Rfam assigns this 247-nucleotide part of an RNA from Parabacteroides chinchillae to the family "Bacterial large subunit ribosomal RNA". The family is grouped with related families in Rfam's "LSU clan". The organism belongs to Parabacteroides, within Bacteria. Gene Ontology terms of the family: structural constituent of ribosome and ribosome.
[Rfam]
RNA sequence: UAGGAUAUUUGAGGGGCUCUGACACUAGUACGAGAGGACCGUGUUGGACAGACCACUGGUUUACCGGUUGUUCCGCCAGGGGCACCGCCGGGUAUCUAAGUCUGGAUUGGAUAAGUGCUGAAAGCAUCUAAGUACGAAGCCAGCCUCAAGAUGAGAUAUCCCUUAAGGGUCGUUGUAGACUACGACGUUGAUAGGCUACAGGUGUAAGUGCAGUAAUGUGCGAGCCGAGUAGUACUAAUUGCCCGAG
Numbered sequence: 001u002a003g004g005a006u007a008u009u010u011g012a013g014g015g016g017c018u019c020u021g022a023c024a025c026u027a028g029u030a031c032g033a034g035a036g037g038a039c040c041g042u043g044u045u046g047g048a049c050a051g052a053c054c055a056c057u058g059g060u061u062u063a064c065c066g067g068u069u070g071u072u073c074c075g076c077c078a079g080g081g082g083c084a085c086c087g088c089c090g091g092g093u094a095u096c097u098a099a100g101u102c103u104g105g106a107u108u109g110g111a112u113a114a115g116u117g118c119u120g121a122a123a124g125c126a127u128c129u130a131a132g133u134a135c136g137a138a139g140c141c142a143g144c145c146u147c148a149a150g151a152u153g154a155g156a157u158a159u160c161c162c163u164u165a166a167g168g169g170u171c172g173u174u175g176u177a178g179a180c181u182a183c184g185a186c187g188u189u190g191a192u193a194g195g196c197u198a199c200a201g202g203u204g205u206a207a208g209u210g211c212a213g214u215a216a217u218g219u220g221c222g223a224g225c226c227g228a229g230u231a232g233u234a235c236u237a238a239u240u241g242c243c244c245g246a247g
Base pairs, nucleotide, nucleotide: 003161004160005159006158007157008156009155010154013147014146015145016144019047020046021045022044023043024042025041049104050103051102052101053100057098058097059096064091065090066089067088068087069084070083071082072081073080074079108142109141110140115135116134117133118132119131164246167244168243169242170241171187172186173185174184175183192237193236194235195233196232197231198230199229201226202225208221209220210219211218212217